[Rfam]
RNA sequence: AGUCAUGGACAGGGGUACUAUUUUAUAUUUAUAGAAUGGUUGAGAGAUACUCUUAGUAGCUGAUCUAGGUAAUUCUAGCGUAGCGAGUCUUUUUUCUCCUAAC
Dot-bracket structure: ......((((((((.((((((((((......)))))))))......)..)))).....((((..((((......))))..))))..)))).............
RNA: TPP riboswitch aptamer (THI element)